[Rfam]
RNA: c-di-AMP riboswitch aptamer (ydaO/yuaA leader)
Organism: Cyanobacteria bacterium FACHB-502
RNA sequence: GAAUCAAGUCAGCCUAAUUCGACCGCCUUCAUUCGAUCGGCGCAAUCGAAACGGAGGAAUCAAUUUUUGGGACGUAUUUGCGGUCAGGAUAAUGCCUGGGUUUUAGCUUAGCGUUGAGUCUCGAUUGCAAAAGGGCAUUUCCCAGCCUUAGCCCGUCAACUAACUCCGUCGGCAAAGGGAGAAGACUG
Numbered sequence: 001g002a003a004u005c006a007a008g009u010c011a012g013c014c015u016a017a018u019u020c021g022a023c024c025g026c027c028u029u030c031a032u033u034c035g036a037u038c039g040g041c042g043c044a045a046u047c048g049a050a051a052c053g054g055a056g057g058a059a060u061c062a063a064u065u066u067u068u069g070g071g072a073c074g075u076a077u078u079u080g081c082g083g084u085c086a087g088g089a090u091a092a093u094g095c096c097u098g099g100g101u102u103u104u105a106g107c108u109u110a111g112c113g114u115u116g117a118g119u120c121u122c123g124a125u126u127g128c129a130a131a132a133g134g135g136c137a138u139u140u141c142c143c144a145g146c147c148u149u150a151g152c153c154c155g156u157c158a159a160c161u162a163a164c165u166c167c168g169u170c171g172g173c174a175a176a177g178g179g180a181g182a183a184g185a186c187u188g
Stems, first nucleotide, its partner, number of pairs: 012173003018050005051169006061069002070154002078130008133148004